[Rfam]
RNA sequence: UAAACAACAGGCGAUGGAGCUCGCCUUGUGCCCGAAUGGCUGAUGGCUCCUGUAAAGUA
Numbered sequence: 001u002a003a004a005c006a007a008c009a010g011g012c013g014a015u016g017g018a019g020c021u022c023g024c025c026u027u028g029u030g031c032c033c034g035a036a037u038g039g040c041u042g043a044u045g046g047c048u049c050c051u052g053u054a055a056a057g058u059a
Stems, first nucleotide, its partner, number of pairs: 010025004016050006030040003
This 59-nucleotide RNA sequence from Pelotomaculum schinkii belongs to the Rfam family "Fluoride riboswitch aptamer (crcB RNA motif)".
NCBI's taxonomy places the organism under Bacteria, Bacillati, Clostridia, Desulfotomaculaceae, Pelotomaculum.
The base pairs follow the family's consensus structure, which is taken from published work.